Record summary:
Bacterial RNase P class A: a 368-nucleotide RNA sequence from Bifidobacterium aquikefiri. The family's consensus secondary structure is taken from published work. For this family Rfam cites "Ribonuclease P: unity and diversity in a tRNA processing ribozyme" (Frank and Pace, Annu Rev Biochem, 1998). The family's RNA type in Rfam is ribozyme.
RNA sequence: UGAGACCCCUUUAUGGCUGCGGUGCUGGGUUUUUCCCCGCACUGAGGAACUUCCGGGCUCCACAGAGCACAAUGGCGGAUAACGUCCGCCCAGGGUGACCUGAGAGAUAGCGCAACAGAGAAUAGACCGCCCGCGUUUGGAAACUUACGCAGGUAAGGGUGAAACGGCGGUGCAAGAGACCACCGAAUCGCUGGUGACAGUGAUUGCAAGGCAAGCCUCAUUGGGAGCAAGGCCAAGCAGAAGACAUCAAGAGCUGCUCGCUCACGUCUUCGGGUAGGCUGCUAGAGCCUGACGGCAACGUCAGGUCGAGAUGGAUGGCCAUACGUCUUACACGACGACAGAACCCGGGGUACGAGGGGUCUCACUAC
Numbered sequence: 001u002g003a004g005a006c007c008c009c010u011u012u013a014u015g016g017c018u019g020c021g022g023u024g025c026u027g028g029g030u031u032u033u034u035c036c037c038c039g040c041a042c043u044g045a046g047g048a049a050c051u052u053c054c055g056g057g058c059u060c061c062a063c064a065g066a067g068c069a070c071a072a073u074g075g076c077g078g079a080u081a082a083c084g085u086c087c088g089c090c091c092a093g094g095g096u097g098a099c100c101u102g103a104g105a106g107a108u109a110g111c112g113c114a115a116c117a118g119a120g121a122a123u124a125g126a127c128c129g130c131c132c133g134c135g136u137u138u139g140g141a142a143a144c145u146u147a148c149g150c151a152g153g154u155a156a157g158g159g160u161g162a163a164a165c166g167g168c169g170g171u172g173c174a175a176g177a178g179a180c181c182a183c184c185g186a187a188u189c190g191c192u193g194g195u196g197a198c199a200g201u202g203a204u205u206g207c208a209a210g211g212c213a214a215g216c217c218u219c220a221u222u223g224g225g226a227g228c229a230a231g232g233c234c235a236a237g238c239a240g241a242a243g244a245c246a247u248c249a250a251g252a253g254c255u256g257c258u259c260g261c262u263c264a265c266g267u268c269u270u271c272g273g274g275u276a277g278g279c280u281g282c283u284a285g286a287g288c289c290u291g292a293c294g295g296c297a298a299c300g301u302c303a304g305g306u307c308g309a310g311a312u313g314g315a316u317g318g319c320c321a322u323a324c325g326u327c328u329u330a331c332a333c334g335a336c337g338a339c340a341g342a343a344c345c346c347g348g349g350g351u352a353c354g355a356g357g358g359g360u361c362u363c364a365c366u367a368c
Base pairs, nucleotide, nucleotide: 001364002363003362004361005360006359007358008357009356010355012323013322014321015320016319017318018317020044021043022042023041024040025039027037028036049351050350051349053348054347055346056345057344058227059226060225061224065259066258067257068256070223071222072221073220074219075089076088077087078086079085090104091102092101093100094099105218106217110216111215112212113211127158128157129154130153131152133150134149135148136147166184167183169181170180171179185207186205187204188203189202190201191200192199193198231280232279233278234277240271241270242269243268244267245266251263252262253261254260287306288305289304290303291302292301293300294299